[Rfam]
RNA: HDV ribozyme from F. prausnitzii
Organism: Rodentolepis nana
RNA sequence: GGUGUGCGAUAGACUUACCUCCUCGUGGUGCACCCUGGGCAACGUUUUUUUAAAUCGGCAAAAAAGUCUAU
Numbered sequence: 001g002g003u004g005u006g007c008g009a010u011a012g013a014c015u016u017a018c019c020u021c022c023u024c025g026u027g028g029u030g031c032a033c034c035c036u037g038g039g040c041a042a043c044g045u046u047u048u049u050u051u052a053a054a055u056c057g058g059c060a061a062a063a064a065a066g067u068c069u070a071u
Stems, first nucleotide, its partner, number of pairs: 001036002004033004017029003043057002046054002